[Rfam]
RNA sequence: CAUAUGCAGCUAGCGCCUGGACCGGUUCUGGCCGGUUGACGAGGAGAAAGGUUAUCGAAAGAUUCGGCGGAUGCCUUUCCGGCCGCUUAACCACGGUCGUUACAUUUGCCUGUAAAACCCGCGGGUAACCGCGAAACAGAGGGUAGAUGCUGGUGAAA
Numbered sequence: 001c002a003u004a005u006g007c008a009g010c011u012a013g014c015g016c017c018u019g020g021a022c023c024g025g026u027u028c029u030g031g032c033c034g035g036u037u038g039a040c041g042a043g044g045a046g047a048a049a050g051g052u053u054a055u056c057g058a059a060a061g062a063u064u065c066g067g068c069g070g071a072u073g074c075c076u077u078u079c080c081g082g083c084c085g086c087u088u089a090a091c092c093a094c095g096g097u098c099g100u101u102a103c104a105u106u107u108g109c110c111u112g113u114a115a116a117a118c119c120c121g122c123g124g125g126u127a128a129c130c131g132c133g134a135a136a137c138a139g140a141g142g143g144u145a146g147a148u149g150c151u152g153g154u155g156a157a158a
Base pairs, nucleotide, nucleotide: 020037021036022035023034024033025032026031046079047078048077049076050075055067056066057065058064080099081098082097083096084095085094104148105147106146107145108144109143110142120133121132122131123130124129
The family of this 158-nucleotide sequence from Ethanoligenens harbinense is "glmS glucosamine-6-phosphate activated ribozyme aptamer". By type it is a riboswitch. A search with the family's covariance model found it, with a score of 98 bits. Taxonomically the source falls in Ethanoligenens harbinense (Bacteria, Bacillati, Bacillota, Oscillospiraceae).